[Rfam]
RNA sequence: UUCUUAUUGGAUGAUGGCUGUCACGUGUCAUGUUGUGAUUGGUCAAUAAAAAUAACAAUACAUUUCAUCUUUCAUGGAGUUGACAUCCAAUCACAACAUGACACGUGACAGUCAUCAUCU
Numbered sequence: 001u002u003c004u005u006a007u008u009g010g011a012u013g014a015u016g017g018c019u020g021u022c023a024c025g026u027g028u029c030a031u032g033u034u035g036u037g038a039u040u041g042g043u044c045a046a047u048a049a050a051a052a053u054a055a056c057a058a059u060a061c062a063u064u065u066c067a068u069c070u071u072u073c074a075u076g077g078a079g080u081u082g083a084c085a086u087c088c089a090a091u092c093a094c095a096a097c098a099u100g101a102c103a104c105g106u107g108a109c110a111g112u113c114a115u116c117a118u119c120u
Stems, first nucleotide, its partner, number of pairs: 020109004025104002029100003033096004038091005
RNA: MIR1520 microRNA precursor family
Organism: Glycine soja